The family of this 116-nucleotide RNA sequence from Eragrostis curvula is "MIR5070 microRNA precursor family". Its family is annotated with RISC complex and miRNA-mediated post-transcriptional gene silencing in the Gene Ontology. Rfam 15.1 lists 266 matches to the family in 8 species. The family is grouped with related families in Rfam's "MIR2863 microRNA precursor clan".
Nucleotides: 116
Base pairs, nucleotide, nucleotide: 002115003114004113005112006111008109010107011106012105013104014103015102016101017100018099019098020097021096022095023094024093025092026091027090028089029088030087031086032085033084034083035082036081037080038079039078040077041076042075043074
Number, partner (000 for none) and nucleotide at each position: 001000u002115a003114g004113g005112g006111u007000c008109g009000g010107c011106u012105c013104c014103g015102a016101c017100c018099c019098u020097u021096u022095u023094u024093a025092g026091u027090u028089c029088a030087a031086c032085c033084a034083a035082a036081u037080g038079a039078a040077c041076u042075a043074g044000u045000u046000u047000u048000u049000c050000a051000a052000a053000a054000u055000a056000a057000g058000c059000u060000c061000u062000c063000a064000u065000u066000u067000u068000g069000g070000a071000a072000a073000a074043c075042u076041a077040g078039u079038u080037c081036a082035u083034u084033u085032g086031g087030u088029u089028g090027a091026a092025c093024u094023a095022a096021a097020g098019a099018g100017g101016g102015u103014c104013g105012g106011a107010g108000g109008u110000u111006a112005u113004c114003c115002u116000a